[Rfam]
RNA sequence: GACCUGUGAUGACCUGAUUUUGCCAGAUGACUCUGCUGAUUAUAACCAUUACCGUUCCACUUUACUCUGAGGUU
Numbered sequence: 001g002a003c004c005u006g007u008g009a010u011g012a013c014c015u016g017a018u019u020u021u022g023c024c025a026g027a028u029g030a031c032u033c034u035g036c037u038g039a040u041u042a043u044a045a046c047c048a049u050u051a052c053c054g055u056u057c058c059a060c061u062u063u064a065c066u067c068u069g070a071g072g073u074u
Stems, first nucleotide, its partner, number of pairs: 001074004
RNA: Small nucleolar RNA SNORD47